[Rfam]
RNA sequence: GUGUGUGUGGGGAAAAAGUACAGAAGUCUCUGAGGUCGAAACAUGGAAAGACUUUAAGGCACUUCUGUAU
Dot-bracket structure: ..............(.......(((((..((.(((((............))).)).))..))))))....
Numbered sequence: 001g002u003g004u005g006u007g008u009g010g011g012g013a014a015a016a017a018g019u020a021c022a023g024a025a026g027u028c029u030c031u032g033a034g035g036u037c038g039a040a041a042c043a044u045g046g047a048a049a050g051a052c053u054u055u056a057a058g059g060c061a062c063u064u065c066u067g068u069a070u
Stems, first nucleotide, its partner, number of pairs: 015066001023065005030058002033055002035052003

The family of this 70-nucleotide RNA sequence from Gloeothece citriformis is "Cyano-1 RNA". Rfam classes the family as a small RNA. Taxonomically the source falls in Gloeothece citriformis (Bacteria, Cyanobacteriota, Chroococcales, Aphanothecaceae). A search with the family's covariance model found it, with a score of 42 bits.